[Rfam]
RNA sequence: GAAGCAGGACAGGCAAUCGCUGCUUCCGCGCAUGCGCGGAAGGGGAGGAAAGUCCGGACUCCACAGGGCAGGGUGAUGGCUAACGACCAUCCGCGGUGACGCGAGGAACAGGGCCACAGAGACGAGCGUAUUCAGUUACGGUGAAACGCGGUAACCUCCACCCGGAGCAAUCCCAAGUAGGCAGGCAUUGAAGCGGCCCGCCGAGCCUGCGGGUAGGGAGCUAGAACCGGCCGGUAACGGCCGGUCCAGAUGAAUGAUUGCCACGGUACGCGGCUUGCCGCGUACUGCACAGAAUCCGGCUUAUCGACCUGCUUCGCCC
Numbered sequence: 001g002a003a004g005c006a007g008g009a010c011a012g013g014c015a016a017u018c019g020c021u022g023c024u025u026c027c028g029c030g031c032a033u034g035c036g037c038g039g040a041a042g043g044g045g046a047g048g049a050a051a052g053u054c055c056g057g058a059c060u061c062c063a064c065a066g067g068g069c070a071g072g073g074u075g076a077u078g079g080c081u082a083a084c085g086a087c088c089a090u091c092c093g094c095g096g097u098g099a100c101g102c103g104a105g106g107a108a109c110a111g112g113g114c115c116a117c118a119g120a121g122a123c124g125a126g127c128g129u130a131u132u133c134a135g136u137u138a139c140g141g142u143g144a145a146a147c148g149c150g151g152u153a154a155c156c157u158c159c160a161c162c163c164g165g166a167g168c169a170a171u172c173c174c175a176a177g178u179a180g181g182c183a184g185g186c187a188u189u190g191a192a193g194c195g196g197c198c199c200g201c202c203g204a205g206c207c208u209g210c211g212g213g214u215a216g217g218g219a220g221c222u223a224g225a226a227c228c229g230g231c232c233g234g235u236a237a238c239g240g241c242c243g244g245u246c247c248a249g250a251u252g253a254a255u256g257a258u259u260g261c262c263a264c265g266g267u268a269c270g271c272g273g274c275u276u277g278c279c280g281c282g283u284a285c286u287g288c289a290c291a292g293a294a295u296c297c298g299g300c301u302u303a304u305c306g307a308c309c310u311g312c313u314u315c316g317c318c319c
Base pairs, nucleotide, nucleotide: 001315002314003313004312005311006310007309008308010306011304012262013261014260015259016258017257018256020045021044023042024041025040026039027038028037050302051301052300054299055298056297057296058295059167060166061165062164066199067198068197069196071163072162073161074160075159076090077089078088079087091105092103093102094101095100106158107157111156112155113152114151115150127140128139129138130137171219172218173217174216181210182209183208184207185206186205193201194200226245227244228243229242230241231240232239233238
Shown here is a 319-nucleotide sequence from Imbroritus primus, a member of the family "Bacterial RNase P class A". By type it is a ribozyme. Gene Ontology terms of the family: tRNA processing, dimeric ribonuclease P complex and ribonuclease P activity.